[Rfam]
RNA sequence: ACUCAUCGACCACCCGUACACGGCAGGAGCGGGGGACCCACAGGUAGAACUGCCUGUUCCGGUUCCCGGAACGGCUUGGGGUAAAGCCGCGCUCCGGCGCGGCCGGGCAUCUCCAGCCCGCACCCGACAGCUCACCUCGCAGGCGCCGGAGAGGAAUUCA
Numbered sequence: 001a002c003u004c005a006u007c008g009a010c011c012a013c014c015c016g017u018a019c020a021c022g023g024c025a026g027g028a029g030c031g032g033g034g035g036a037c038c039c040a041c042a043g044g045u046a047g048a049a050c051u052g053c054c055u056g057u058u059c060c061g062g063u064u065c066c067c068g069g070a071a072c073g074g075c076u077u078g079g080g081g082u083a084a085a086g087c088c089g090c091g092c093u094c095c096g097g098c099g100c101g102g103c104c105g106g107g108c109a110u111c112u113c114c115a116g117c118c119c120g121c122a123c124c125c126g127a128c129a130g131c132u133c134a135c136c137u138c139g140c141a142g143g144c145g146c147c148g149g150a151g152a153g154g155a156a157u158u159c160a
Base pairs, nucleotide, nucleotide: 011145013143014142019027029140030139031138032137033136034135039078040077079125080124081123087102088101089100090099105119106118107117108116
Shown here is a 160-nucleotide sequence from Streptomyces coelicolor, a member of the family "c-di-AMP riboswitch aptamer (ydaO/yuaA leader)". Its family is annotated with cyclic-di-AMP binding and regulation of gene expression in the Gene Ontology.